Description:
mir-204 microRNA precursor family: a 90-nucleotide RNA sequence from Oncorhynchus mykiss.
[Rfam]
RNA sequence: AUGUGACUUAUGGGCUUCCCUUUGUCAUCCUAUGCCUGGGCUCAUAUAAAAGGGGCUGGGGAGGCAAAGGGACGCCUAUUCGUCAAAACA
Numbered sequence: 001a002u003g004u005g006a007c008u009u010a011u012g013g014g015c016u017u018c019c020c021u022u023u024g025u026c027a028u029c030c031u032a033u034g035c036c037u038g039g040g041c042u043c044a045u046a047u048a049a050a051a052g053g054g055g056c057u058g059g060g061g062a063g064g065c066a067a068a069g070g071g072a073c074g075c076c077u078a079u080u081c082g083u084c085a086a087a088a089c090a
Stems, first nucleotide, its partner, number of pairs: 017072006024065002028061005034056004
Its family is annotated with miRNA-mediated post-transcriptional gene silencing and RISC complex in the Gene Ontology.